[Rfam]
RNA sequence: GGUUCCGGUGCGGCGGGCGGCCAGAAGACAGAGAACCCCGGGGAAAGCACCUCGCCGAACCCCACCCCUCCCGCCCGCCGUCCACACCCGGGCGUCGCUCACUCGGGCGGGUGAAGGUCUCCAGUUCGGCUGGAUACGGGGCCCCCUCGCGGCUCUACGCUCACCGCGACACGACCCCAGACAUGCGACGGCCCUCGCCGGGAGUGCGAAUCCCGUGCGAGGGCCUGACCACCGAGGAAGAAGCACCUUCCUG
Numbered sequence: 001g002g003u004u005c006c007g008g009u010g011c012g013g014c015g016g017g018c019g020g021c022c023a024g025a026a027g028a029c030a031g032a033g034a035a036c037c038c039c040g041g042g043g044a045a046a047g048c049a050c051c052u053c054g055c056c057g058a059a060c061c062c063c064a065c066c067c068c069u070c071c072c073g074c075c076c077g078c079c080g081u082c083c084a085c086a087c088c089c090g091g092g093c094g095u096c097g098c099u100c101a102c103u104c105g106g107g108c109g110g111g112u113g114a115a116g117g118u119c120u121c122c123a124g125u126u127c128g129g130c131u132g133g134a135u136a137c138g139g140g141g142c143c144c145c146c147u148c149g150c151g152g153c154u155c156u157a158c159g160c161u162c163a164c165c166g167c168g169a170c171a172c173g174a175c176c177c178c179a180g181a182c183a184u185g186c187g188a189c190g191g192c193c194c195u196c197g198c199c200g201g202g203a204g205u206g207c208g209a210a211u212c213c214c215g216u217g218c219g220a221g222g223g224c225c226u227g228a229c230c231a232c233c234g235a236g237g238a239a240g241a242a243g244c245a246c247c248u249u250c251c252u253g
Base pairs, nucleotide, nucleotide: 007233008232009231010230016075017074018073019072099114100113101112102111103110104109129165131163132162133161190225191224192223193222194221196219197218198217200214201213202212203211236251237250238249239248240247